[Rfam]
RNA sequence: UAGUGUUACGUCUUUUUUAGAAUUUGUCUAGCAGCUUUUCCAGUUUUCACUGGGGGAAAAA
Numbered sequence: 001u002a003g004u005g006u007u008a009c010g011u012c013u014u015u016u017u018u019a020g021a022a023u024u025u026g027u028c029u030a031g032c033a034g035c036u037u038u039u040c041c042a043g044u045u046u047u048c049a050c051u052g053g054g055g056g057a058a059a060a061a
Base pairs, nucleotide, nucleotide: 036060037059038058039057040056041055042051043050044049
Dot-bracket structure: ...................................(((((((((....)))...)))))).
U7 small nuclear RNA: a 61-nucleotide RNA from Cebus imitator. For this family Rfam cites "3' end processing of mouse histone pre-mRNA: evidence for additional base-pairing between U7 snRNA and pre-mRNA" (Spycher et al., Nucleic Acids Res, 1994). The family's consensus secondary structure was predicted with PFOLD. The match comes from Rfam's covariance-model search (42 bits). From the family's description: Animal histone pre-mRNAs are spliced by a different mechanism than nuclear pre-mRNAs and self-splicing introns.